[Rfam]
RNA sequence: UUAUGUCUCAAAGGGGAGUAGCGUCGUUAUCUUUUAGAGAUAACGAGAUAAAGUCGUCAAUACAUGAAUUUAAUUCAUCGGUUUUAUCAACAUAUUUUUUAUGUC
Numbered sequence: 001u002u003a004u005g006u007c008u009c010a011a012a013g014g015g016g017a018g019u020a021g022c023g024u025c026g027u028u029a030u031c032u033u034u035u036a037g038a039g040a041u042a043a044c045g046a047g048a049u050a051a052a053g054u055c056g057u058c059a060a061u062a063c064a065u066g067a068a069u070u071u072a073a074u075u076c077a078u079c080g081g082u083u084u085u086a087u088c089a090a091c092a093u094a095u096u097u098u099u100u101a102u103g104u105c
Base pairs, nucleotide, nucleotide: 025045026044027043028042029041047088048087049086050085051084052083053082054081055080056079064078065077066076067075068074

Manganese Mn2+ riboswitch aptamer (yybP-ykoY): a 105-nucleotide RNA sequence from Brochothrix thermosphacta. NCBI's taxonomy places the organism under Bacteria, Bacilli, Caryophanales, Listeriaceae, Brochothrix. This RNA was originally discovered in E. coli during a large scale screen and was named SraF. The family was later found to exist upstream of related families of protein genes in many bacteria, including the the yybP and ykoK genes in B. subtilis. The specific functions of these proteins are unknown, but this structured RNA element may be involved in their genetic regulation as a riboswitch.